[Rfam]
RNA: FMN riboswitch aptamer (RFN element)
Nucleotides: 165
Base pairs, nucleotide, nucleotide: 004162006160007159008158009157010156017029018028019027031145032144033135034134035073036072037071038070068133069132076111077110115131116130117129118128119127137148138147139146
Number, partner (000 for none) and nucleotide at each position: 001000a002000a003000a004162a005000c006160c007159u008158c009157u010156c011000a012000g013000g014000g015000c016000g017029g018028g019027g020000u021000g022000a023000a024000a025000u026000u027019c028018c029017c030000c031145a032144c033135c034134g035073g036072c037071g038070g039000u040000a041000a042000g043000c044000a045000a046000c047000g048000g049000c050000g051000c052000g053000c054000a055000g056000g057000c058000g059000u060000u061000g062000a063000u064000g065000u066000a067000a068133g069132c070038c071037c072036g073035c074000g075000a076111g077110c078000g079000c080000c081000a082000c083000g084000g085000g086000c087000a088000c089000c090000u091000u092000c093000a094000c095000a096000g097000g098000c099000a100000c101000c102000c103000u104000g105000g106000g107000a108000c109000a110077g111076c112000a113000g114000a115131c116130c117129c118128g119127g120000u121000g122000u123000g124000a125000a126000u127119c128118c129117g130116g131115g132069g133068c134034c135033g136000a137148c138147g139146g140000u141000a142000u143000a144032g145031u146139c147138c148137g149000g150000a151000u152000g153000a154000a155000a156010g157009a158008g159007a160006g161000u162004u163000g164000g165000a